The record is a 97-nucleotide RNA from Lederbergia galactosidilytica, which matches "Guanidine-I riboswitch aptamer" in Rfam.
The pairing is the family consensus, mapped onto this sequence.
NCBI's taxonomy places the organism under Bacteria, Bacillota, Bacilli, Caryophanales, Lederbergia.
It scores 82 bits against the family's covariance model.

[Rfam]
RNA sequence: AAAAAUGUUUUCUAGGGUUCCGCAAUUUUUAAUAUUGGCCUGGUCCGAGAGAAAACUCACGCUAGUCGUGUCACGGAAGGAUAAAAGCCUGGGAGAA
Numbered sequence: 001a002a003a004a005a006u007g008u009u010u011u012c013u014a015g016g017g018u019u020c021c022g023c024a025a026u027u028u029u030u031a032a033u034a035u036u037g038g039c040c041u042g043g044u045c046c047g048a049g050a051g052a053a054a055a056c057u058c059a060c061g062c063u064a065g066u067c068g069u070g071u072c073a074c075g076g077a078a079g080g081a082u083a084a085a086a087g088c089c090u091g092g093g094a095g096a097a
Stems, first nucleotide, its partner, number of pairs: 007056006015046002020043002022040001023037004028032001058070004072092001074095001078090003